[Rfam]
RNA sequence: AGCAACGCUGAGAAACAGAGGAGUAGGCUUUUCCACGCGUCAAGAGAGAGUGUCCAUGGCUGAGAGACACUUCGCGGAUUGUGAGGCUGAAGGUCGCUGGGGAGCGGCCGGCGCGAACGCUUAAACUAAAGCAAGCGCCGGACGGGUGACGCCGUUACAAGUCAUGUGAGGUGCCGCGUCGCGGAGUCCCGGAGUGCGUCGUUUAAGACGCGUAUCCCGGAUGAGCAGCGGAACUGGGGUGGUAACGCGAAUGAACUUCGUCCCUUGA
Dot-bracket structure: ......((.......(((.......((((((.....(((........((((((.............))))))))).......))))))........)))....))..(((((((....................))))))).(((......)))...................((((..(............................................)..))))....((((.......(((((.....)))))))))...